About this RNA
This 97-nucleotide sequence from Anaerosolibacter carboniphilus belongs to the Rfam family "THF (Tetrahydrofolate) riboswitch aptamer". The family's consensus secondary structure is taken from published work. A reference for the family is Huang et al. (2011), "Long-range pseudoknot interactions dictate the regulatory response in the tetrahydrofolate riboswitch", Proc Natl Acad Sci U S A. NCBI's taxonomy places the organism under Bacteria, Bacillati, Peptostreptococcales, Thermotaleaceae, Anaerosolibacter.

RNA sequence: AGCAGAGUAAGAACCAUGCGUCAAGUGUUAAGGGAUGGGAAGUUGCCCUUAAACGAAGAAUGUUUUCUAUUCGCGAUAUGGUUCCGCGUCCGCUGCU
Numbered sequence: 001a002g003c004a005g006a007g008u009a010a011g012a013a014c015c016a017u018g019c020g021u022c023a024a025g026u027g028u029u030a031a032g033g034g035a036u037g038g039g040a041a042g043u044u045g046c047c048c049u050u051a052a053a054c055g056a057a058g059a060a061u062g063u064u065u066u067c068u069a070u071u072c073g074c075g076a077u078a079u080g081g082u083u084c085c086g087c088g089u090c091c092g093c094u095g096c097u
Base pairs, nucleotide, nucleotide: 001097002096003095004094005093011084012083013082014081015080016079017078018077019075020074021073025054026053028052029051030050031049032048033047034046038091039090040089042087058072059071060070061069